[Rfam]
RNA sequence: GUGACAGAAGAGAGUGAGCACACAUGGUGCUUUCUUGCAUGUUUUCUCCAUGUUUGAAGCUAUGCGUGCUCACUCUCUCUCUGUCAC
Numbered sequence: 001g002u003g004a005c006a007g008a009a010g011a012g013a014g015u016g017a018g019c020a021c022a023c024a025u026g027g028u029g030c031u032u033u034c035u036u037g038c039a040u041g042u043u044u045u046c047u048c049c050a051u052g053u054u055u056g057a058a059g060c061u062a063u064g065c066g067u068g069c070u071c072a073c074u075c076u077c078u079c080u081c082u083g084u085c086a087c
Stems, first nucleotide, its partner, number of pairs: 001087008010077012023064003